Rfam assigns this 94-nucleotide sequence from Chaetops frenatus to the family "mir-130 microRNA precursor family". The organism belongs to Chaetops, within Eukaryota. Rfam links the family to the GO terms miRNA-mediated post-transcriptional gene silencing and RISC complex. The literature on the family includes a 2002 paper in Curr Biol by Lagos-Quintana et al., "Identification of tissue-specific microRNAs from mouse".

RNA sequence: CUUUCUCCAGUACCUUCUCUAUAUUGCACCUCUUGCAUCACUGCCCAUGUUCAGUGAUGCAAGAGGUGCAAUAUAGAGAAGGUACUGGAGAAAG
Dot-bracket structure: .((.((((((.((((((((..(((((((((((((((((((((..........)))))))))))))))))))))..)))))))).))))))..))